[Rfam]
RNA sequence: ACGCAUCUGUUUCAAUACCUUCAUAUAUGUUUGAGAAUAGGGCUCAAAUGUUUCUACCGGAACACCGUAAAUGUUCGGACUAUGAAGGCGGCGAUCUUACCA
Dot-bracket structure: .................((((((((...(((((((.......)))))))........(.(((((.......))))).)..))))))))..............
This 102-nucleotide sequence from Gracilibacillus kekensis belongs to the Rfam family "Purine riboswitch aptamer". NCBI's taxonomy places the organism under Bacteria, Bacillota, Caryophanales, Bacillaceae, Gracilibacillus. The match comes from Rfam's covariance-model search (80 bits). The base pairs follow the family's consensus structure, which is taken from published work. Rfam's curators write: Riboswitches are metabolite binding domains within certain messenger RNAs that serve as precision sensors for their corresponding targets.